[Rfam]
Nucleotides: 072
Stems, first nucleotide, its partner, number of pairs: 001071007010025004027043005048064005
Number, partner (000 for none) and nucleotide at each position: 001071g002070a003069a004068c005067g006066a007065a008000u009000a010025g011024c012023u013022c014000c015000a016000a017000u018000g019000g020000u021000a022013g023012a024011g025010c026000a027043g028042u029041g030040g031039u032000u033000u034000g035000a036000a037000g038000c039031a040030c041029c042028a043027c044000c045000a046000g047000u048064a049063c050062a051061g052060g053000u054000u055000c056000g057000a058000a059000u060052c061051c062050u063049g064048u065007u066006u067005c068004g069003u070002u071001c072000a
The record is a 72-nucleotide sequence from Chitinophaga silvatica, which matches "tRNA" in Rfam.
The family's RNA type in Rfam is transfer RNA.
Pairs were carried over by alignment from the consensus structure, which is taken from published work.
Its family is annotated with triplet codon-amino acid adaptor activity in the Gene Ontology.